[Rfam]
RNA sequence: UUCUGACCCUCGGUUGUGAUGCCCAUCUGCGGGGCCCUGACGCACUUCCCCGGCGCCAGGUCUUCAGCGGAUGGGGAUCAGAGCCCAGUGGUCCGGCCCG
Numbered sequence: 001u002u003c004u005g006a007c008c009c010u011c012g013g014u015u016g017u018g019a020u021g022c023c024c025a026u027c028u029g030c031g032g033g034g035c036c037c038u039g040a041c042g043c044a045c046u047u048c049c050c051c052g053g054c055g056c057c058a059g060g061u062c063u064u065c066a067g068c069g070g071a072u073g074g075g076g077a078u079c080a081g082a083g084c085c086c087a088g089u090g091g092u093c094c095g096g097c098c099c100g
Stems, first nucleotide, its partner, number of pairs: 010087001012085004018079002022075009031065004036060004041055003
RNA: mraW RNA